[Rfam]
RNA sequence: AAACAAUCAUGUAACUGGCGGAAAUGGAAUAUACCAUAGGGAACAUGAUUGAAUAGAAGUUGUAUCGACCGCCUGGGUAAUUUAA
Numbered sequence: 001a002a003a004c005a006a007u008c009a010u011g012u013a014a015c016u017g018g019c020g021g022a023a024a025u026g027g028a029a030u031a032u033a034c035c036a037u038a039g040g041g042a043a044c045a046u047g048a049u050u051g052a053a054u055a056g057a058a059g060u061u062g063u064a065u066c067g068a069c070c071g072c073c074u075g076g077g078u079a080a081u082u083u084a085a
Stems, first nucleotide, its partner, number of pairs: 004051009015040002017073005024037004063079004
The record is an 85-nucleotide RNA from Clostridium sp. cel8, which matches "ZMP/ZTP riboswitch aptamer (pfl RNA motif)" in Rfam. It scores 59 bits against the family's covariance model. The base pairs follow the family's consensus structure, which is taken from published work.